Shown here is a 127-nucleotide RNA from Lynx pardinus, a member of the family "Small nucleolar RNA SNORA43". About the family: ACA43 is a member of the H/ACA class of snoRNA that guide the sites of modification of uridines to pseudouridines. Rfam 15.1 lists 492 matches to the family in 142 species. The family's consensus secondary structure was predicted with RNAfold. Its family is annotated with RNA processing and nucleolus in the Gene Ontology. The family's RNA type in Rfam is H/ACA-box small nucleolar RNA.
RNA sequence: AUUGCCCUGCAGGUGCCGGACCUGCUGUUCUGCUGCACCUGUGACGUUGGGGCAAAGAGGAAAUGGCUGUUUCCACGCUCAGUGCUCACAACAGUGAGCACUAAGCACGGUCUGUAGCCCCACGUGC
Numbered sequence: 001a002u003u004g005c006c007c008u009g010c011a012g013g014u015g016c017c018g019g020a021c022c023u024g025c026u027g028u029u030c031u032g033c034u035g036c037a038c039c040u041g042u043g044a045c046g047u048u049g050g051g052g053c054a055a056a057g058a059g060g061a062a063a064u065g066g067c068u069g070u071u072u073c074c075a076c077g078c079u080c081a082g083u084g085c086u087c088a089c090a091a092c093a094g095u096g097a098g099c100a101c102u103a104a105g106c107a108c109g110g111u112c113u114g115u116a117g118c119c120c121c122a123c124g125u126g127c
Base pairs, nucleotide, nucleotide: 003054004053005052006051007050008049009048017041018040019039065119066118067117073110074109078105079104083100084099085098086097087096088095